The record is a 75-nucleotide sequence from Roseburia sp. CAG:182, which matches "Fluoride riboswitch aptamer (crcB RNA motif)" in Rfam.
The base pairs follow the family's consensus structure, which is taken from published work.
A search with the family's covariance model found it, with a score of 43 bits.
Lineage of the source: Bacteria > Bacillota > Clostridia > Lachnospirales > Roseburia.
[Rfam]
RNA sequence: UUUAGAAAAGGGAAUGAAGUUCUCCCUCGAUUGAUUUCGAAACCGCUGAUUCAGGCUGAUGACUUCUGUGCAUUU
Numbered sequence: 001u002u003u004a005g006a007a008a009a010g011g012g013a014a015u016g017a018a019g020u021u022c023u024c025c026c027u028c029g030a031u032u033g034a035u036u037u038c039g040a041a042a043c044c045g046c047u048g049a050u051u052c053a054g055g056c057u058g059a060u061g062a063c064u065u066c067u068g069u070g071c072a073u074u075u
Stems, first nucleotide, its partner, number of pairs: 010026004016066006045056003